Annotation:
Rfam assigns this 98-nucleotide RNA from Clostridium sp. DSM 8431 to the family "Purine riboswitch aptamer". Lineage of the source: Bacteria > Bacillati > Clostridia > Clostridiaceae > Clostridium.
RNA sequence: AACAACAUACAUAUGAGAACUCGUAUAUACCCUGAAUAAGGCAGGGAGUAUCUACCAGAAGCCGUAAAUUUCUGACUAUGAGUGAAUUAAUAUAUCUG
Numbered sequence: 001a002a003c004a005a006c007a008u009a010c011a012u013a014u015g016a017g018a019a020c021u022c023g024u025a026u027a028u029a030c031c032c033u034g035a036a037u038a039a040g041g042c043a044g045g046g047a048g049u050a051u052c053u054a055c056c057a058g059a060a061g062c063c064g065u066a067a068a069u070u071u072c073u074g075a076c077u078a079u080g081a082g083u084g085a086a087u088u089a090a091u092a093u094a095u096c097u098g
Stems, first nucleotide, its partner, number of pairs: 019083007030046005056074006
The base pairs follow the family's consensus structure, which is taken from published work.